Rfam assigns this 46-nucleotide sequence from a Pirellulaceae bacterium to the family "Acido-Lenti-1 RNA". Rfam classes the family as a small RNA. Rfam 15.1 lists 2,607 matches to the family in 171 species. NCBI's taxonomy places the organism under Bacteria, Pseudomonadati, Planctomycetota, Pirellulales, Pirellulaceae. The base pairs follow the family's consensus structure, which is taken from published work.
[Rfam]
RNA sequence: CCCCGCCCUUACGGGCGGGGCUAUUUCAUGACGGCCCUUCGGGCCU
Numbered sequence: 001c002c003c004c005g006c007c008c009u010u011a012c013g014g015g016c017g018g019g020g021c022u023a024u025u026u027c028a029u030g031a032c033g034g035c036c037c038u039u040c041g042g043g044c045c046u
Stems, first nucleotide, its partner, number of pairs: 001020008033045005